[Rfam]
The record is a 200-nucleotide part of an RNA from Felis catus, which matches "Eukaryotic large subunit ribosomal RNA" in Rfam. The match comes from Rfam's covariance-model search (2045 bits). NCBI's taxonomy places the organism under Eukaryota, Craniata, Tetrapoda, Felinae, Felis.

RNA sequence: GCGGUGCGCCGCGACCGGCUCCGGGACGGCUGGGAAGGCCGGCGGGGAAGGUGGCUCGGGGGGCCCCGCUCUCUCCCGAGGGCGGGCCCACCCCCCGAGUGUUACAGCCCCCCGGCAGCAGCGCUCGCCGAAUCCCGGGGCCGAGGGAGCAGACCGUCGCCGCGCUCUCCCCCCUCCCGGCGCCCACCCCCGCGGGGGCU
Number, nucleotide and partner (000 for none) at each position: 001g000002c000003g000004g000005u000006g165007c164008g163009c162010c000011g160012c159013g158014a157015c156016c000017g000018g000019c000020u000021c000022c000023g000024g000025g000026a000027c000028g000029g000030c000031u000032g000033g000034g000035a000036a000037g000038g000039c000040c000041g000042g000043c000044g000045g000046g000047g000048a000049a000050g057051g056052u000053g000054g000055c000056u051057c050058g000059g000060g000061g089062g088063g087064c086065c085066c000067c000068g000069c080070u079071c000072u000073c000074u000075c000076c000077c000078g000079a070080g069081g000082g000083c000084g000085g065086g064087c063088c062089c061090a000091c000092c000093c000094c000095c000096c000097g000098a000099g000100u000101g000102u000103u000104a000105c000106a000107g000108c000109c000110c000111c000112c000113c000114g000115g000116c000117a000118g000119c000120a000121g000122c000123g000124c000125u000126c000127g000128c000129c000130g000131a000132a000133u000134c000135c000136c000137g000138g000139g000140g000141c000142c000143g000144a000145g000146g000147g000148a000149g000150c000151a000152g000153a000154c000155c000156g015157u014158c013159g012160c011161c000162g009163c008164g007165c006166u000167c000168u000169c198170c197171c196172c195173c194174c000175u000176c000177c000178c000179g000180g000181c000182g000183c000184c000185c000186a000187c000188c000189c000190c000191c000192g000193c000194g173195g172196g171197g170198g169199c000200u000
Gene Ontology terms of the family: ribosome and structural constituent of ribosome.